RNA sequence: UGGGCAGUAUCAGAGCGAACUGCACCAUGAUUCGAAGCAAUACAAAAAAUAAUAACUUGGAUUCUGCCUUGAUCCAAUAACGGACUGGGACAGAGGG
Numbered sequence: 001u002g003g004g005c006a007g008u009a010u011c012a013g014a015g016c017g018a019a020c021u022g023c024a025c026c027a028u029g030a031u032u033c034g035a036a037g038c039a040a041u042a043c044a045a046a047a048a049a050u051a052a053u054a055a056c057u058u059g060g061a062u063u064c065u066g067c068c069u070u071g072a073u074c075c076a077a078u079a080a081c082g083g084a085c086u087g088g089g090a091c092a093g094a095g096g097g
Stems, first nucleotide, its partner, number of pairs: 001027003004023005010018002064093003067089003071085001073084003
A member of the RNA family "pan motif" from Bacillus thuringiensis, 97 nucleotides long. NCBI's taxonomy places the organism under Bacteria, Bacillota, Bacillaceae, Bacillus thuringiensis, [Bacillus thuringiensis] serovar konkukian.